[Rfam]
RNA: MtlS RNA
RNA sequence: UUCCCCGUUCGAUGUUCUGAUAGACAUUGUUGUAGUAACGGUUUGCCAAAACCGUUUAUUGUUUGCUUAGUACCCAAUCAAUUUACCACACAAUUUCCAAAUAGAGCUGAGGACGGGGUUUUCG
Numbered sequence: 001u002u003c004c005c006c007g008u009u010c011g012a013u014g015u016u017c018u019g020a021u022a023g024a025c026a027u028u029g030u031u032g033u034a035g036u037a038a039c040g041g042u043u044u045g046c047c048a049a050a051a052c053c054g055u056u057u058a059u060u061g062u063u064u065g066c067u068u069a070g071u072a073c074c075c076a077a078u079c080a081a082u083u084u085a086c087c088a089c090a091c092a093a094u095u096u097c098c099a100a101a102u103a104g105a106g107c108u109g110a111g112g113a114c115g116g117g118g119u120u121u122u123c124g
Stems, first nucleotide, its partner, number of pairs: 004117006014107006021100001023096002027090001029089002032086004039054005059081003063077003
Dot-bracket structure: ...((((((....((((((.(.((..(.((.((((...(((((......)))))....(((.(((.........))).))).)))).)))....))...).))))))....)))))).......